[Rfam]
RNA sequence: AUAAAUUAUAUAAAAGCCCUUCGUAUAACCCUAUUAAUUUGGUAUAGGGGUAUCUACCGUGGAACCUUAAUUCCUGCUUACGAAGAAAAUACGUCACAUA
Numbered sequence: 001a002u003a004a005a006u007u008a009u010a011u012a013a014a015a016g017c018c019c020u021u022c023g024u025a026u027a028a029c030c031c032u033a034u035u036a037a038u039u040u041g042g043u044a045u046a047g048g049g050g051u052a053u054c055u056a057c058c059g060u061g062g063a064a065c066c067u068u069a070a071u072u073c074c075u076g077c078u079u080a081c082g083a084a085g086a087a088a089a090u091a092c093g094u095c096a097c098a099u100a
Stems, first nucleotide, its partner, number of pairs: 019085007029049006058076002061074004

Shown here is a 100-nucleotide RNA from Cetobacterium somerae, a member of the family "Purine riboswitch aptamer". The source organism's lineage runs through Bacteria, Fusobacteriati, Fusobacteriales, Fusobacteriaceae and Cetobacterium somerae. It scores 62 bits against the family's covariance model. From the family's description: Riboswitches are metabolite binding domains within certain messenger RNAs that serve as precision sensors for their corresponding targets.